[Rfam]
RNA sequence: UAAGCAGGCUGCAAUUACAGUGCUUCACACUGUGGGAGUACUGCCAUUAACCUGCUGAGAGCAACAUGCUGCUGGGAACCUGGUUUAACAUUUUCGCCAACGUGGUGAUGGUGUUUACCUAACACAGCUACAUUU
Numbered sequence: 001u002a003a004g005c006a007g008g009c010u011g012c013a014a015u016u017a018c019a020g021u022g023c024u025u026c027a028c029a030c031u032g033u034g035g036g037a038g039u040a041c042u043g044c045c046a047u048u049a050a051c052c053u054g055c056u057g058a059g060a061g062c063a064a065c066a067u068g069c070u071g072c073u074g075g076g077a078a079c080c081u082g083g084u085u086u087a088a089c090a091u092u093u094u095c096g097c098c099a100a101c102g103u104g105g106u107g108a109u110g111g112u113g114u115u116u117a118c119c120u121a122a123c124a125c126a127g128c129u130a131c132a133u134u135u
Stems, first nucleotide, its partner, number of pairs: 003056006018043009068128004073124002077120001088114005094108006
A member of the RNA family "Small nucleolar RNA SNORA69" from Polypterus senegalus, 135 nucleotides long. Its family is annotated with nucleolus and RNA processing in the Gene Ontology. Rfam describes the family as follows. U69 is a member of the H/ACA class of small nucleolar RNAs (snoRNAs) which act as guides in the the modification of uridines to pseudouridines. Rfam classes the family as an H/ACA-box small nucleolar RNA. The organism belongs to Polypterus, within Eukaryota.